[Rfam]
RNA sequence: GCCUUGAGGGUGAAAGCCUGACAGCGUUGUGCUGGAGCGAGAAGUCAGCAGAGGUCGUAGUAGUCGAAGUAGCGGGCUGCUGAAGCCAUCAGUGAAACGGCGAAGGGC
Numbered sequence: 001g002c003c004u005u006g007a008g009g010g011u012g013a014a015a016g017c018c019u020g021a022c023a024g025c026g027u028u029g030u031g032c033u034g035g036a037g038c039g040a041g042a043a044g045u046c047a048g049c050a051g052a053g054g055u056c057g058u059a060g061u062a063g064u065c066g067a068a069g070u071a072g073c074g075g076g077c078u079g080c081u082g083a084a085g086c087c088a089u090c091a092g093u094g095a096a097a098c099g100g101c102g103a104a105g106g107g108c
Stems, first nucleotide, its partner, number of pairs: 001025002004023001008019004045052002054108003063101004
RNA: Group II catalytic intron D1-D4-1
Organism: Diaphorobacter ruginosibacter